Source information:
The record is a 96-nucleotide RNA from Schleiferilactobacillus perolens, which matches "THF (Tetrahydrofolate) riboswitch aptamer" in Rfam. Rfam describes the family as follows. Tetrahydrofolate (THF) riboswitch was first reported for Ames et al. as an RNA motif in 5' untranslated (5'-UTR)regions of folate transport and biosynthesis genes in Firmicutes genomes.

RNA sequence: UACGGAGUAGGUCCCGAUGCGUUAAGUGCCGCAGGAACGGAAUGUGAACUGCGGACGAAGAGUUUAACUCGCGGUGUCGGGACCGCAUUCGCCGCA
Number, nucleotide and partner (000 for none) at each position: 001u096002a000003c094004g093005g092006a000007g000008u000009a000010g084011g083012u082013c081014c080015c079016g078017a077018u076019g075020c073021g072022u071023u000024a000025a000026g056027u055028g000029c054030c053031g052032c051033a050034g049035g000036a000037a000038c000039g000040g090041a089042a088043u087044g086045u000046g000047a000048a000049c034050u033051g032052c031053g030054g029055a027056c026057g000058a000059a000060g070061a069062g068063u067064u000065u000066a000067a063068c062069u061070c060071g022072c021073g020074g000075u019076g018077u017078c016079g015080g014081g013082a012083c011084c010085g000086c044087a043088u042089u041090c040091g000092c005093c004094g003095c000096a001

The organism belongs to Schleiferilactobacillus perolens, within Bacteria. It scores 86 bits against the family's covariance model.